[Rfam]
RNA sequence: AAAAUAAAGGAGCAAUAUGAACCUCUUGUUUUAUAAAGAGGUUCAUAUUGCUCCUUUAU
Dot-bracket structure: .....((((((((((((..((.(((((........))))).))..))))))))))))..
Numbered sequence: 001a002a003a004a005u006a007a008a009g010g011a012g013c014a015a016u017a018u019g020a021a022c023c024u025c026u027u028g029u030u031u032u033a034u035a036a037a038g039a040g041g042u043u044c045a046u047a048u049u050g051c052u053c054c055u056u057u058a059u
Stems, first nucleotide, its partner, number of pairs: 006057012020043002023040005
The record is a 59-nucleotide sequence from Saxifraga stolonifera, which matches "Plastid-psbA-4 3UTR RNA" in Rfam. The family's RNA type in Rfam is cis-regulatory element. Rfam's curators write: Plastid psbA-4 is a non-coding RNA (ncRNA) present in plastids. It was identified in inverted repeat sequences in the 3 prime untranslate region (3UTR) of photosystem II quinone-binding protein (psbA). NCBI's taxonomy places the organism under Eukaryota, Embryophyta, Tracheophyta, Saxifragaceae, Saxifraga. It is one of the family's seed sequences.